[Rfam]
Source information:
The family of this 80-nucleotide RNA from Homo sapiens is "mir-614 microRNA precursor family". Rfam's curators put it in the seed alignment. The family has 3 seed sequences and 7 matches in Rfam 15.1. Lineage of the source: Eukaryota > Chordata > Tetrapoda > Amniota > Homo.

RNA sequence: GCAGUGGUCUCUGAAGCCUGCAGGGGCAGGCCAGCCCUGCACUGAACGCCUGUUCUUGCCAGGUGGCAGAAGGUUGCUGC
Numbered sequence: 001g002c003a004g005u006g007g008u009c010u011c012u013g014a015a016g017c018c019u020g021c022a023g024g025g026g027c028a029g030g031c032c033a034g035c036c037c038u039g040c041a042c043u044g045a046a047c048g049c050c051u052g053u054u055c056u057u058g059c060c061a062g063g064u065g066g067c068a069g070a071a072g073g074u075u076g077c078u079g080c
Stems, first nucleotide, its partner, number of pairs: 001080010011069003016064005021058011032044003